[Rfam]
RNA sequence: CUCGUUCAUUCAGAAGAAAUUCUGAACGGAAGUAGGUAAUGACACCGAAGGAACGCAUC
Numbered sequence: 001c002u003c004g005u006u007c008a009u010u011c012a013g014a015a016g017a018a019a020u021u022c023u024g025a026a027c028g029g030a031a032g033u034a035g036g037u038a039a040u041g042a043c044a045c046c047g048a049a050g051g052a053a054c055g056c057a058u059c
Base pairs, nucleotide, nucleotide: 003055004054005053006052007051009026010025011024012023013022014021015020029056035046036045037044
About this RNA
Shown here is a 59-nucleotide sequence, a member of the family "Glutamine riboswitch aptamer (glnA leader)". The literature on the family includes a 2011 paper in RNA Biol by Ames and Breaker, "Bacterial aptamers that selectively bind glutamine". Gene Ontology term of the family: glutamine binding. It is one of the family's seed sequences.